[Rfam]
RNA sequence: CUGCGGUGAUGACUCUCUUAGGACACCUUUGGAUUUAAACGUGAAAAAAAAUUAAAUUUCUGAGCAGU
Numbered sequence: 001c002u003g004c005g006g007u008g009a010u011g012a013c014u015c016u017c018u019u020a021g022g023a024c025a026c027c028u029u030u031g032g033a034u035u036u037a038a039a040c041g042u043g044a045a046a047a048a049a050a051a052u053u054a055a056a057u058u059u060c061u062g063a064g065c066a067g068u
Stems, first nucleotide, its partner, number of pairs: 001067004
The family of this 68-nucleotide RNA from Dromaius novaehollandiae is "Small nucleolar RNA SNORD58". Its Rfam clan is "SNORD58 clan". By type it is a C/D-box small nucleolar RNA. snoRNA U58 is found in introns 1, 3 and 6 of the ribosomal protein RPL17 gene in humans. The literature on the family includes a 2002 paper in Mol Cell Biol by Galardi et al., "Purified box C/D snoRNPs are able to reproduce site-specific 2'-O-methylation of target RNA in vitro". The match comes from Rfam's covariance-model search (75 bits).